Overview:
The family of this 115-nucleotide RNA sequence from Trifolium medium is "MIR2593 microRNA precursor family". The base pairs follow the family's consensus structure, which was predicted with RNAalifold. Lineage of the source: Eukaryota > eudicotyledons > fabids > Trifolieae > Trifolium.
RNA sequence: UUAUAAGCAAAUUUUUAUUAUUCAGAUUCAUUGAAUAACUGAUGUAUCUGGUCUAUAAUAUAGACCAAAUACAUCAGUUAUUCAAUGAAUCUAAAAAGUGAAUAUUUGCUUAUAA
Numbered sequence: 001u002u003a004u005a006a007g008c009a010a011a012u013u014u015u016u017a018u019u020a021u022u023c024a025g026a027u028u029c030a031u032u033g034a035a036u037a038a039c040u041g042a043u044g045u046a047u048c049u050g051g052u053c054u055a056u057a058a059u060a061u062a063g064a065c066c067a068a069a070u071a072c073a074u075c076a077g078u079u080a081u082u083c084a085a086u087g088a089a090u091c092u093a094a095a096a097a098g099u100g101a102a103u104a105u106u107u108g109c110u111u112a113u114a115a
Base pairs, nucleotide, nucleotide: 002114003113004112005111006110007109009107010106011105012104015101016100017099018098019097021095022094024092025091027089028088029087030086031085032084033083034082035081036080037079038078039077040076041075042074043073044072049067050066051065052064